[Rfam]
RNA sequence: AAUGCCCCUAGAGGCGUUGCAGUUGUGGCUGCUUGUCACAGCUGUGCCAGUGGUGGGCAGGGAGCAGAGGCUACGUCUAUGCUCGGUGUUCUGACCUAUGAACGUUUGAAUGAUUAGUAGCCUGACACU
Numbered sequence: 001a002a003u004g005c006c007c008c009u010a011g012a013g014g015c016g017u018u019g020c021a022g023u024u025g026u027g028g029c030u031g032c033u034u035g036u037c038a039c040a041g042c043u044g045u046g047c048c049a050g051u052g053g054u055g056g057g058c059a060g061g062g063a064g065c066a067g068a069g070g071c072u073a074c075g076u077c078u079a080u081g082c083u084c085g086g087u088g089u090u091c092u093g094a095c096c097u098a099u100g101a102a103c104g105u106u107u108g109a110a111u112g113a114u115u116a117g118u119a120g121c122c123u124g125a126c127a128c129u
Stems, first nucleotide, its partner, number of pairs: 003059004008053003013048003019045004024040006067126001068123007080112002083109004087104005

The family of this 129-nucleotide RNA from Tupaia belangeri is "Small nucleolar RNA SNORA17". The family has 53 seed sequences and 5,784 matches in Rfam 15.1. The base pairs follow the family's consensus structure, which was predicted with RNAalifold. Rfam classes the family as an H/ACA-box small nucleolar RNA. snoRNA ACA 17 belongs to the H/ACA family of snoRNAs and is predicted to guide pseudouridylation of the 28S rRNA at positions U4659 and U4598. NCBI's taxonomy places the organism under Eukaryota, Craniata, Tetrapoda, Boreoeutheria, Tupaia belangeri. The match comes from Rfam's covariance-model search (108 bits). For this family Rfam cites "Mapping to nucleotide resolution of pseudouridine residues in large subunit ribosomal RNAs from representative eukaryotes, prokaryotes, archaebacteria, mitochondria and chloroplasts" (Ofengand and Bakin, J Mol Biol, 1997). Rfam links the family to the GO terms nucleolus and RNA processing.